Notes: Rfam assigns this 52-nucleotide RNA sequence from Molossus molossus to the family "mir-1302 microRNA precursor family".
[Rfam]
RNA sequence: AUUUUAGUAUAAGUAUGUCUCAUGAAACAUUUGGAACAUAUUUACACUAAAA
Numbered sequence: 001a002u003u004u005u006a007g008u009a010u011a012a013g014u015a016u017g018u019c020u021c022a023u024g025a026a027a028c029a030u031u032u033g034g035a036a037c038a039u040a041u042u043u044a045c046a047c048u049a050a051a052a
Stems, first nucleotide, its partner, number of pairs: 006048003010044003014040003018036001020034002022031001

A search with the family's covariance model found it, with a score of 62 bits.
Lineage of the source: Eukaryota > Bilateria > Dipnotetrapodomorpha > Laurasiatheria > Molossus.